[Rfam]
RNA sequence: UCCUCGCUCGAAGAAUCGCAUUCAAAGCUUACGCACAAAAGAAGUCUCUUCUUUUCUACUCUUGCUUUGGGAGAAAGUCCCCGGACACCCUGCGCUUUGGUUUUCCAAAGUUUUCAAGUCAGGCAAUGCGGAAACGCGCCGCCAUAGAAGCAAUUCGAUAGCGGCUUACUGCCCUAUCCCUCCAAGCUGCUUAGCUACCGCCCGACAGUCUGACUGGACAUAAUGGGGCGGCUGGCUGUGGCUGCAGAGGGGAAGGUGGGAUUCGUCUCCCUUGUAUCGGGUUGCCUUUCGUCGUGUUUGGAUAGUCAUGCGAUUGCCCUCCUUUGAAGGAGGGUAACUCAAUGGGGCUCAUUCUUGAGGCGAGG
Numbered sequence: 001u002c003c004u005c006g007c008u009c010g011a012a013g014a015a016u017c018g019c020a021u022u023c024a025a026a027g028c029u030u031a032c033g034c035a036c037a038a039a040a041g042a043a044g045u046c047u048c049u050u051c052u053u054u055u056c057u058a059c060u061c062u063u064g065c066u067u068u069g070g071g072a073g074a075a076a077g078u079c080c081c082c083g084g085a086c087a088c089c090c091u092g093c094g095c096u097u098u099g100g101u102u103u104u105c106c107a108a109a110g111u112u113u114u115c116a117a118g119u120c121a122g123g124c125a126a127u128g129c130g131g132a133a134a135c136g137c138g139c140c141g142c143c144a145u146a147g148a149a150g151c152a153a154u155u156c157g158a159u160a161g162c163g164g165c166u167u168a169c170u171g172c173c174c175u176a177u178c179c180c181u182c183c184a185a186g187c188u189g190c191u192u193a194g195c196u197a198c199c200g201c202c203c204g205a206c207a208g209u210c211u212g213a214c215u216g217g218a219c220a221u222a223a224u225g226g227g228g229c230g231g232c233u234g235g236c237u238g239u240g241g242c243u244g245c246a247g248a249g250g251g252g253a254a255g256g257u258g259g260g261a262u263u264c265g266u267c268u269c270c271c272u273u274g275u276a277u278c279g280g281g282u283u284g285c286c287u288u289u290c291g292u293c294g295u296g297u298u299u300g301g302a303u304a305g306u307c308a309u310g311c312g313a314u315u316g317c318c319c320u321c322c323u324u325u326g327a328a329g330g331a332g333g334g335u336a337a338c339u340c341a342a343u344g345g346g347g348c349u350c351a352u353u354c355u356u357g358a359g360g361c362g363a364g365g
Stems, first nucleotide, its partner, number of pairs: 002365006008358004014315006022071001023069006038054007076349002079347004095110006194286001196284001200282006210274001212272001317334006
RNase MRP: a 365-nucleotide sequence from Penicillium chermesinum. By type it is a ribozyme. The source organism's lineage runs through Eukaryota, Dikarya, saccharomyceta, Eurotiomycetidae and Penicillium. The family is grouped with related families in Rfam's "RNaseP clan".